[Rfam]
RNA sequence: AUGGCAGAUCUCGGCUCUGAGAACUGAAUUCCAUGGACUGUUGCGACGGCAGUAUUUUUCAGUCCACAGUGUUCAGUACUCCAGCUUGGCUGCUUUAU
Numbered sequence: 001a002u003g004g005c006a007g008a009u010c011u012c013g014g015c016u017c018u019g020a021g022a023a024c025u026g027a028a029u030u031c032c033a034u035g036g037a038c039u040g041u042u043g044c045g046a047c048g049g050c051a052g053u054a055u056u057u058u059u060c061a062g063u064c065c066a067c068a069g070u071g072u073u074c075a076g077u078a079c080u081c082c083a084g085c086u087u088g089g090c091u092g093c094u095u096u097a098u
Stems, first nucleotide, its partner, number of pairs: 010089002013086003020080002023077005035065006
Overview:
This 98-nucleotide RNA from Hymenochirus boettgeri belongs to the Rfam family "mir-146 microRNA precursor family". For this family Rfam cites "Identification of tissue-specific microRNAs from mouse" (Lagos-Quintana et al., Curr Biol, 2002). Gene Ontology terms of the family: RISC complex and miRNA-mediated post-transcriptional gene silencing.